[Rfam]
This 125-nucleotide RNA sequence from Winogradskyella flava belongs to the Rfam family "SAM riboswitch aptamer (S box leader)". The family's consensus secondary structure is taken from published work. Rfam links the family to the GO term regulation of gene expression.
RNA sequence: AUGUUAUCAAGAAAGGUGGAGGGAAUAGACCCUAUGAAGCCUUAGCAACCCUUAGAUUUACUAAGUAGGUGCUAAAUUCUACUUGAGUGCGCGAGUCAUUUUUCGCAAAUUCGGAUAGAUAACCA
Numbered sequence: 001a002u003g004u005u006a007u008c009a010a011g012a013a014a015g016g017u018g019g020a021g022g023g024a025a026u027a028g029a030c031c032c033u034a035u036g037a038a039g040c041c042u043u044a045g046c047a048a049c050c051c052u053u054a055g056a057u058u059u060a061c062u063a064a065g066u067a068g069g070u071g072c073u074a075a076a077u078u079c080u081a082c083u084u085g086a087g088u089g090c091g092c093g094a095g096u097c098a099u100u101u102u103u104c105g106c107a108a109a110u111u112c113g114g115a116u117a118g119a120u121a122a123c124c125a
Base pairs, nucleotide, nucleotide: 003123004122005121006120007119008118013043014042015041016040017039021032022031023030026081027080028079029078044073045072046071047070049069050068051065052064053063054062077117082114083113